[Rfam]
RNA sequence: AAAUCCGCCGAUCCUUCGUCAUACGGCCGACACGGUAACCAUUUAUUAAGCAAAGCAGCCGAAUAAUUCGUUCAGUUGAUCUGACUACGGAUGUACUAGCAGGUCAAAUAUGAGGCGAAUUGAGGAAAGGUCGGGUUUGUCCCGGCCUUUUUGCUU
Number, nucleotide and partner (000 for none) at each position: 001a000002a000003a064004u063005c000006c061007g059008c058009c000010g000011a000012u000013c000014c000015u000016u000017c000018g000019u000020c000021a000022u000023a000024c000025g000026g000027c000028c000029g000030a000031c000032a000033c000034g000035g000036u000037a000038a000039c000040c000041a000042u000043u000044u000045a000046u000047u000048a000049a000050g000051c000052a000053a000054a000055g000056c000057a000058g008059c007060c000061g006062a000063a004064u003065a000066a000067u119068u118069c117070g116071u115072u113073c112074a000075g000076u107077u106078g105079a104080u000081c000082u101083g100084a000085c099086u098087a097088c000089g000090g000091a000092u000093g000094u000095a000096c000097u087098a086099g085100c083101a082102g000103g000104u079105c078106a077107a076108a000109u000110a000111u000112g073113a072114g000115g071116c070117g069118a068119a067120u000121u000122g154123a000124g152125g151126a150127a149128a148129g147130g146131u145132c144133g143134g142135g000136u000137u000138u000139g000140u000141c000142c134143c133144g132145g131146c130147c129148u128149u127150u126151u125152u124153g000154c122155u000156u000

A member of the RNA family "Alphaproteobacterial sRNA ar35" from Pararhizobium polonicum, 156 nucleotides long. The organism belongs to Pararhizobium, within Bacteria. It is annotated as a small RNA. The literature on the family includes a 2012 paper in RNA Biol by del Val et al., "A survey of sRNA families in alpha-proteobacteria". It scores 48 bits against the family's covariance model.